[Rfam]
The family of this 535-nucleotide part of an RNA from Gasterosteus aculeatus is "Eukaryotic large subunit ribosomal RNA". NCBI's taxonomy places the organism under Eukaryota, Eupercaria, Perciformes, Gasterosteidae, Gasterosteus.

RNA sequence: CCUUCCGAAGUUUCCCUCAGGAUAGCUGGUGCAUUUUAAUAUUAUAUAAAAUAAUCUUAUCUGGUAAAGCGAAUGAUUAGAGGCCUUAGGGUCGAAACGAUCUUAACCUAUUCUCAAACUUUAAAUGGGUAAGAACCUUAACUUUCUUGAUAUGAAGUUCAAGGUUAUGAUAUAAUGUGCCCAGUGGGCCACUUUUGGUAAGCAGAACUGGCGCUGUGGGAUGAACCAAACGUAAUGUUACGGUGCCCAAAUUAACAACUCAUGCAGAUACCAUGAAAGGCGUUGGUUGCUUAAAACAGCAGGACGGUGAUCAUGGAAGUCGAAAUCCGCUAAGGAGUGUGUAACAACUCACCUGCCGAAGCAACUAGCCCUUAAAAUGGAUGGCGCUUAAGUUGUAUACCUAUACAUUACCGCUAAAGUAGAUGAUUUAUAUUACUUGUGAUAUAAAUUUUGAAACUUUAGUGAGUAGGAAGGUACAAUGGUAUGCGUAGAAGUGUUUGGCGUAAGCCUGCAUGGAGCUGCCAUUGGUACAGAU
Numbered sequence: 001c002c003u004u005c006c007g008a009a010g011u012u013u014c015c016c017u018c019a020g021g022a023u024a025g026c027u028g029g030u031g032c033a034u035u036u037u038a039a040u041a042u043u044a045u046a047u048a049a050a051a052u053a054a055u056c057u058u059a060u061c062u063g064g065u066a067a068a069g070c071g072a073a074u075g076a077u078u079a080g081a082g083g084c085c086u087u088a089g090g091g092u093c094g095a096a097a098c099g100a101u102c103u104u105a106a107c108c109u110a111u112u113c114u115c116a117a118a119c120u121u122u123a124a125a126u127g128g129g130u131a132a133g134a135a136c137c138u139u140a141a142c143u144u145u146c147u148u149g150a151u152a153u154g155a156a157g158u159u160c161a162a163g164g165u166u167a168u169g170a171u172a173u174a175a176u177g178u179g180c181c182c183a184g185u186g187g188g189c190c191a192c193u194u195u196u197g198g199u200a201a202g203c204a205g206a207a208c209u210g211g212c213g214c215u216g217u218g219g220g221a222u223g224a225a226c227c228a229a230a231c232g233u234a235a236u237g238u239u240a241c242g243g244u245g246c247c248c249a250a251a252u253u254a255a256c257a258a259c260u261c262a263u264g265c266a267g268a269u270a271c272c273a274u275g276a277a278a279g280g281c282g283u284u285g286g287u288u289g290c291u292u293a294a295a296a297c298a299g300c301a302g303g304a305c306g307g308u309g310a311u312c313a314u315g316g317a318a319g320u321c322g323a324a325a326u327c328c329g330c331u332a333a334g335g336a337g338u339g340u341g342u343a344a345c346a347a348c349u350c351a352c353c354u355g356c357c358g359a360a361g362c363a364a365c366u367a368g369c370c371c372u373u374a375a376a377a378u379g380g381a382u383g384g385c386g387c388u389u390a391a392g393u394u395g396u397a398u399a400c401c402u403a404u405a406c407a408u409u410a411c412c413g414c415u416a417a418a419g420u421a422g423a424u425g426a427u428u429u430a431u432a433u434u435a436c437u438u439g440u441g442a443u444a445u446a447a448a449u450u451u452u453g454a455a456a457c458u459u460u461a462g463u464g465a466g467u468a469g470g471a472a473g474g475u476a477c478a479a480u481g482g483u484a485u486g487c488g489u490a491g492a493a494g495u496g497u498u499u500g501g502c503g504u505a506a507g508c509c510u511g512c513a514u515g516g517a518g519c520u521g522c523c524a525u526u527g528g529u530a531c532a533g534a535u
Stems, first nucleotide, its partner, number of pairs: 001474006011024001013022003028181006055134008067122001068120002074116003079111001081109003086106006093099001136164004140159005188212004193207005217228003232411005238405001242401003251398001253397001257394003278372003282369010299356005305329003311323002330334001335350001339348002412464009475530001477527008486519002494514002500509003